[Rfam]
RNA sequence: GGGUCUCGGUUAGAGGACCAGGUCUGAGCCCGGGAGCUCCCUGGCCUCUAGCUGAACCCGC
Numbered sequence: 001g002g003g004u005c006u007c008g009g010u011u012a013g014a015g016g017a018c019c020a021g022g023u024c025u026g027a028g029c030c031c032g033g034g035a036g037c038u039c040c041c042u043g044g045c046c047u048c049u050a051g052c053u054g055a056a057c058c059c060g061c
Stems, first nucleotide, its partner, number of pairs: 001059004006055011018044005026039004
The record is a 61-nucleotide RNA from Lentivirus humimdef1, which matches "Trans-activation response element (TAR)" in Rfam. On this family, see Ouellet et al., Nucleic Acids Res 2008: "Identification of functional microRNAs released through asymmetrical processing of HIV-1 TAR element". Rfam describes the family as follows. This family represents the HIV trans-activation response (TAR) element which is known to be required for the trans-activation of the viral promoter and for virus replication.